[Rfam]
A member of the RNA family "mir-711 microRNA precursor family" from Galemys pyrenaicus, 69 nucleotides long. The family's consensus secondary structure was predicted with RNAalifold. Its family is annotated with RISC complex and miRNA-mediated post-transcriptional gene silencing in the Gene Ontology. The literature on the family includes a 2009 paper in Genomics by Zhou et al., "In silico detection and characteristics of novel microRNA genes in the Equus caballus genome using an integrated ab initio and comparative genomic approach".
RNA sequence: CCUGACGUUGAGUUUUCCCUCAGGGUGCUACGGGCAAAGCCGGGGACCCGGGGAGAGAUGUAAGUGAGG
Numbered sequence: 001c002c003u004g005a006c007g008u009u010g011a012g013u014u015u016u017c018c019c020u021c022a023g024g025g026u027g028c029u030a031c032g033g034g035c036a037a038a039g040c041c042g043g044g045g046a047c048c049c050g051g052g053g054a055g056a057g058a059u060g061u062a063a064g065u066g067a068g069g
Stems, first nucleotide, its partner, number of pairs: 002068002005065002008062001012059005018053003023049004028044002031042003